This 89-nucleotide sequence from Clostridium sp. CAG:354 belongs to the Rfam family "Bacterial small signal recognition particle RNA". About the family: The signal recognition particle (SRP) is a universally conserved ribonucleoprotein involved in the co-translational targeting of proteins to membranes. Taxonomically the source falls in Clostridium (Bacteria, Bacillota, Clostridia, Eubacteriales). By type it is a non-coding RNA gene. For this family Rfam cites "SRPDB: Signal Recognition Particle Database" (Rosenblad et al., Nucleic Acids Res, 2003). The match comes from Rfam's covariance-model search (59 bits).
[Rfam]
RNA sequence: AGGGCAAUCCCAAUAAAAAGCUAUGAACCUUGUCAGGUCCGGAAGGAAGCAGCAAUAAGUAGUGUAUUUAUGUGGGUAAUUGCUUUCCA
Number, nucleotide and partner (000 for none) at each position: 001a000002g000003g000004g083005c082006a081007a080008u079009c076010c075011c072012a000013a071014u070015a069016a068017a067018a000019a000020g063021c062022u061023a060024u059025g000026a000027a000028c000029c000030u055031u054032g053033u052034c000035a000036g000037g000038u047039c046040c045041g000042g000043a000044a000045g040046g039047a038048a000049g000050c000051a000052g033053c032054a031055a030056u000057a000058a000059g024060u023061a022062g021063u020064g000065u000066a000067u017068u016069u015070a014071u013072g011073u000074g000075g010076g009077u000078a000079a008080u007081u006082g005083c004084u000085u000086u000087c000088c000089a000